RNA: Archaeal large subunit ribosomal RNA, nucleotides 10 to 551
RNA sequence: CACAGACGCCGGUUGGAGGAUGACUCGGCUUGAUAAGUGAUGAAGGACGUGGCAAGCUGCGAUAAGCCUAGGGUAGGUGCAUGCGACCGUUGAUCCUAGGAUUUCCGAAUGAGGUCUCUCAAUAACUCCCAUGCUUACGCUUGGGAGGACGAACUGUCCGAAGUGAAGCAUCUGAGUAGGACGAGGAAGAGAAAUCAAAGAGAUUCCGUUAGUAGCGGCGAGCGAAAACGGAAGAGCCCAAACUGAACCUGUUAUUGUAAGAUAAUAGGGAUGUGGUGUGCUAUAGAUCUAGGUCCUGUAUUUAUAGUCGAAAUAUACUGGAACGUAUUGGCAUAGAUGGUGAUACCCCAGUAGACGAAUGAAUCUUGGAUUUUUCUAUAGCGAGAGUAUUUGGCCUUGACAGUGGCCAAUGAAAAUAGGUGAAAAUAGCAUCUAAGGCUAAAUAUUCAUCAAGACCGAUAGCAUACUAGUACCGUGAGGGAAAGUUGAAAAGUACCCCGGAAGGGGGGUCAAAAGCGCCUGAAACCAACCGGUUACAGACG
Numbered sequence: 001c002a003c004a005g006a007c008g009c010c011g012g013u014u015g016g017a018g019g020a021u022g023a024c025u026c027g028g029c030u031u032g033a034u035a036a037g038u039g040a041u042g043a044a045g046g047a048c049g050u051g052g053c054a055a056g057c058u059g060c061g062a063u064a065a066g067c068c069u070a071g072g073g074u075a076g077g078u079g080c081a082u083g084c085g086a087c088c089g090u091u092g093a094u095c096c097u098a099g100g101a102u103u104u105c106c107g108a109a110u111g112a113g114g115u116c117u118c119u120c121a122a123u124a125a126c127u128c129c130c131a132u133g134c135u136u137a138c139g140c141u142u143g144g145g146a147g148g149a150c151g152a153a154c155u156g157u158c159c160g161a162a163g164u165g166a167a168g169c170a171u172c173u174g175a176g177u178a179g180g181a182c183g184a185g186g187a188a189g190a191g192a193a194a195u196c197a198a199a200g201a202g203a204u205u206c207c208g209u210u211a212g213u214a215g216c217g218g219c220g221a222g223c224g225a226a227a228a229c230g231g232a233a234g235a236g237c238c239c240a241a242a243c244u245g246a247a248c249c250u251g252u253u254a255u256u257g258u259a260a261g262a263u264a265a266u267a268g269g270g271a272u273g274u275g276g277u278g279u280g281c282u283a284u285a286g287a288u289c290u291a292g293g294u295c296c297u298g299u300a301u302u303u304a305u306a307g308u309c310g311a312a313a314u315a316u317a318c319u320g321g322a323a324c325g326u327a328u329u330g331g332c333a334u335a336g337a338u339g340g341u342g343a344u345a346c347c348c349c350a351g352u353a354g355a356c357g358a359a360u361g362a363a364u365c366u367u368g369g370a371u372u373u374u375u376c377u378a379u380a381g382c383g384a385g386a387g388u389a390u391u392u393g394g395c396c397u398u399g400a401c402a403g404u405g406g407c408c409a410a411u412g413a414a415a416a417u418a419g420g421u422g423a424a425a426a427u428a429g430c431a432u433c434u435a436a437g438g439c440u441a442a443a444u445a446u447u448c449a450u451c452a453a454g455a456c457c458g459a460u461a462g463c464a465u466a467c468u469a470g471u472a473c474c475g476u477g478a479g480g481g482a483a484a485g486u487u488g489a490a491a492a493g494u495a496c497c498c499c500g501g502a503a504g505g506g507g508g509g510u511c512a513a514a515a516g517c518g519c520c521u522g523a524a525a526c527c528a529a530c531c532g533g534u535u536a537c538a539g540a541c542g
Base pairs, nucleotide, nucleotide: 008534009533010532011531012530013529014528015527016526022520023486024485027457028456029454030453031452032451033450034449035447036446045106046105047104048061049060050059067100068099069098070097071096072095076088077087078086111120112119113118134147135146136145138143154185155183156182157181158180159179165172166171195201196200205232206231207230208229209228215223216222235440236439237438238437243276244275245274253264254263255262256261283379284378285377286376293371294370295369296368307356308355309354313329315328316327317326318325332336338350339349340348391410392409393408394407395406396405418434419433420432421431422430473480474479